[Rfam]
RNA sequence: UAUAUGGCUAGACUGGAGGGUUAGGGGUCCUCUGUAAGCACACACCCCCUUUGGUGCAGUUGAAGUUCAAAAGGCGGCUUUUUAAGGAAUUAUGAGCCUAAGAAAAACGACAUAGAAACUUCGUCCUACAGGAUUGAUGGUGAUGGGACUUUUACUGGAGGGUAAAAGUUAAUUAUCUUAAAUAUGGGAAUGUGUCAGGCCCGGAAGGGAGCAGCUCUACCAUUAACAGUUGAUGCUUGUAGAACCACGGGGUGGAGUUGGGUUUUUUAGAUAACUUGUAGUUUUGAGAUUAGUCCACUUUUGAACAUGCCAUUUU
Numbered sequence: 001u002a003u004a005u006g007g008c009u010a011g012a013c014u015g016g017a018g019g020g021u022u023a024g025g026g027g028u029c030c031u032c033u034g035u036a037a038g039c040a041c042a043c044a045c046c047c048c049c050u051u052u053g054g055u056g057c058a059g060u061u062g063a064a065g066u067u068c069a070a071a072a073g074g075c076g077g078c079u080u081u082u083u084a085a086g087g088a089a090u091u092a093u094g095a096g097c098c099u100a101a102g103a104a105a106a107a108c109g110a111c112a113u114a115g116a117a118a119c120u121u122c123g124u125c126c127u128a129c130a131g132g133a134u135u136g137a138u139g140g141u142g143a144u145g146g147g148a149c150u151u152u153u154a155c156u157g158g159a160g161g162g163u164a165a166a167a168g169u170u171a172a173u174u175a176u177c178u179u180a181a182a183u184a185u186g187g188g189a190a191u192g193u194g195u196c197a198g199g200c201c202c203g204g205a206a207g208g209g210a211g212c213a214g215c216u217c218u219a220c221c222a223u224u225a226a227c228a229g230u231u232g233a234u235g236c237u238u239g240u241a242g243a244a245c246c247a248c249g250g251g252g253u254g255g256a257g258u259u260g261g262g263u264u265u266u267u268u269a270g271a272u273a274a275c276u277u278g279u280a281g282u283u284u285u286g287a288g289a290u291u292a293g294u295c296c297a298c299u300u301u302u303g304a305a306c307a308u309g310c311c312a313u314u315u316u
Stems, first nucleotide, its partner, number of pairs: 002315001004313005011061004015033007038057004065306009076295004081289002086285011098270008108260004113255001118253007126242007133234005138228002140179001142177005147170010184223004192217001194215002200209003
Dot-bracket structure: .(.(((((..(((((((((((.....)))))))....((((............))))))))...(((((((((..((((.((...(((((((((((.((((((((..((((.(....(((((((.(((((((((((((((.(((((((((((((((....))))))))))..))))).)....((((....(.((....(((....)))....)).)..))))...)).))))).)))))))....))))))).).))))..))))))))....)))))))))))..))..))))..)))))))))..))))).).
Shown here is a 316-nucleotide RNA sequence from Methanobrevibacter smithii, a member of the family "Archaeal signal recognition particle RNA".
Gene Ontology terms of the family: signal recognition particle, plasma membrane targeting and SRP-dependent cotranslational protein targeting to membrane, signal sequence recognition.
It is one of the family's seed sequences.
The source organism's lineage runs through Archaea, Methanobacteriati, Methanobacteriaceae, Methanobrevibacter and Methanobrevibacter smithii.
The family's RNA type in Rfam is non-coding RNA gene.